[Rfam]
RNA sequence: CGUUUCUGCUAGGGGUAGCCUCCGGGCUUGAGAGUCACCCUUUGAACCUGAUCUGGUUAAUACCAGCGGAGGGAAGUGGAAGUCACGCUGA
Numbered sequence: 001c002g003u004u005u006c007u008g009c010u011a012g013g014g015g016u017a018g019c020c021u022c023c024g025g026g027c028u029u030g031a032g033a034g035u036c037a038c039c040c041u042u043u044g045a046a047c048c049u050g051a052u053c054u055g056g057u058u059a060a061u062a063c064c065a066g067c068g069g070a071g072g073g074a075a076g077u078g079g080a081a082g083u084c085a086c087g088c089u090g091a
Base pairs, nucleotide, nucleotide: 006079007078008077009076010075011041012040013039014038017028018027019026020025047072048071049070053066054065055064056063
Rfam assigns this 91-nucleotide sequence from Alteribacillus iranensis to the family "TPP riboswitch aptamer (THI element)". Rfam links the family to the GO term thiamine pyrophosphate binding.